[Rfam]
RNA sequence: AUUUUCUGAGAACCAUUUGAAUCAAGUAAUGUAGUGAUUCAAAUGGUUCAC
Numbered sequence: 001a002u003u004u005u006c007u008g009a010g011a012a013c014c015a016u017u018u019g020a021a022u023c024a025a026g027u028a029a030u031g032u033a034g035u036g037a038u039u040c041a042a043a044u045g046g047u048u049c050a051c
Base pairs, nucleotide, nucleotide: 008051010049011048012047013046014045015044016043017042018041019040020039021038022037023036024035